RNA sequence: AGGCCUAAAGAGAGAAGCAGGGUCUGAUCUAUUGUAUCUGUGGCAGCUUUUGAUCAGCUCUUGCCUCUCUCUUUCUCUCCC
Dot-bracket structure: .......((((((((.((((.(.((((((....((..........))....)))))).).)))).))))))))........
RNA: mir-574 microRNA precursor family
Organism: Pipistrellus kuhlii